[Rfam]
The family of this 61-nucleotide RNA sequence from Tetracentron sinense is "Plastid-psbA-4 3UTR RNA". The family's consensus secondary structure was predicted with LocARNA. The family is grouped with related families in Rfam's "Plastid-psbA 3UTR RNA clan". The source organism's lineage runs through Eukaryota, Viridiplantae, Magnoliopsida, Trochodendrales and Tetracentron. Rfam's curators write: Plastid psbA-4 is a non-coding RNA (ncRNA) present in plastids. It was identified in inverted repeat sequences in the 3 prime untranslate region (3UTR) of photosystem II quinone-binding protein (psbA). It scores 66 bits against the family's covariance model.

RNA sequence: AAGUUAAAGGAGCAAUAAGAAAAUUCUUGUUCUAUCAAGAGUCUUUGUAUUGCUCCUUCAU
Number, nucleotide and partner (000 for none) at each position: 001a000002a000003g000004u000005u000006a000007a058008a057009g056010g055011a054012g053013c052014a051015a050016u049017a048018a000019g000020a000021a044022a000023a000024u041025u040026c039027u038028u037029g036030u000031u000032c000033u000034a000035u000036c029037a028038a027039g026040a025041g024042u000043c000044u021045u000046u000047g000048u017049a016050u015051u014052g013053c012054u011055c010056c009057u008058u007059c000060a000061u000